[Rfam]
RNA sequence: AUCACCAGGGGAUCUUGUUAAAAUGCAAAUUAUGAUUUGGUAAGUUUGGGGUAGAGCCCAAGAUUCUGCAUUUCUAAUAAGCUCCCAGGUUAUGCCAG
Numbered sequence: 001a002u003c004a005c006c007a008g009g010g011g012a013u014c015u016u017g018u019u020a021a022a023a024u025g026c027a028a029a030u031u032a033u034g035a036u037u038u039g040g041u042a043a044g045u046u047u048g049g050g051g052u053a054g055a056g057c058c059c060a061a062g063a064u065u066c067u068g069c070a071u072u073u074c075u076a077a078u079a080a081g082c083u084c085c086c087a088g089g090u091u092a093u094g095c096c097a098g
Stems, first nucleotide, its partner, number of pairs: 004090002009085003014081007021073003025069003029065001031063001033061001
Dot-bracket structure: ...((...(((..((((((((((.(((.(.(.(...........................).).).))).))).))))))).)))...))........

mir-544 microRNA precursor family: a 98-nucleotide RNA sequence from Lipotes vexillifer. The literature on the family includes a 2010 paper in Genes Dev by Chiang et al., "Mammalian microRNAs: experimental evaluation of novel and previously annotated genes". It scores 67 bits against the family's covariance model. Taxonomically the source falls in Lipotes (Eukaryota, Eumetazoa, Craniata, Gnathostomata). Gene Ontology terms of the family: miRNA-mediated post-transcriptional gene silencing and RISC complex. Pairs were carried over by alignment from the consensus structure, which was predicted with RNAalifold. Rfam 15.1 lists 10,750 matches to the family in 132 species.